[Rfam]
RNA sequence: GGGCUUGUGAUGAGAAGAAAAUUAUCUUAGCGGAUUUCAGUGAGAUAACUAUAUCAAUGAUCUGAUUGUUACACACACUGAAGCCC
Numbered sequence: 001g002g003g004c005u006u007g008u009g010a011u012g013a014g015a016a017g018a019a020a021a022u023u024a025u026c027u028u029a030g031c032g033g034a035u036u037u038c039a040g041u042g043a044g045a046u047a048a049c050u051a052u053a054u055c056a057a058u059g060a061u062c063u064g065a066u067u068g069u070u071a072c073a074c075a076c077a078c079u080g081a082a083g084c085c086c
Base pairs, nucleotide, nucleotide: 001086002085003084004083005082